[Rfam]
RNA: MIR397 microRNA precursor family
Nucleotides: 107
Stems, first nucleotide, its partner, number of pairs: 006104005013097011025085004030080003
Number, partner (000 for none) and nucleotide at each position: 001000g002000a003000a004000a005000a006104a007103a008102a009101c010100a011000c012000c013097a014096u015095u016094g017093a018092g019091u020090g021089c022088a023087g024000c025085g026084u027083u028082g029000a030080u031079g032078a033000a034000g035000u036000c037000c038000u039000a040000a041000a042000u043000a044000u045000c046000u047000u048000g049000u050000g051000c052000c053000u054000u055000u056000u057000g058000g059000g060000g061000u062000u063000a064000c065000c066000c067000u068000u069000g070000a071000u072000u073000a074000g075000g076000c077000c078032u079031u080030a081000u082028c083027a084026g085025c086000a087023c088022u089021g090020c091019a092018c093017u094016c095015a096014a097013u098000c099000a100010u101009g102008u103007u104006u105000u106000u107000u